[Rfam]
RNA sequence: UUCCAUCGCUAAGUCAAGGCUUCUUCCUGCGACUCAUGUCGUGUUUUCUUUCAAUGGAGGUCUGUCUGUUACAGCUUUGGUAGAUCGACAAUGUCCCGCACCAAACUUCUUUCUGAAGCGAGGUUGACUGGCCUUCGUCUUGAAGGCCAAUCGUAAGGGUCAUACGUGUUUUGUUUAAGAGUUGAGUUCUACUACUGCCUUUUUUGGUGGCUUGAUAGUUGAACUCUUAGUAACAUCCCACACAUUC
Dot-bracket structure: ..(((...........((((.(((((.(((((......)))))............)))))...))))..........)))..........(((.((...(((...((((.....))))...))).((...(((((((...)))))))...)).....)).)))..(((...(((.........((((...(((.(((((......)))))......)))...))))......)))...)))......
This 247-nucleotide RNA from Penicillium cataractarum belongs to the Rfam family "Small nucleolar RNA snR191". The source organism's lineage runs through Eukaryota, Dikarya, saccharomyceta, Pezizomycotina and Penicillium. The family's RNA type in Rfam is H/ACA-box small nucleolar RNA. The base pairs follow the family's consensus structure, which was predicted with WAR.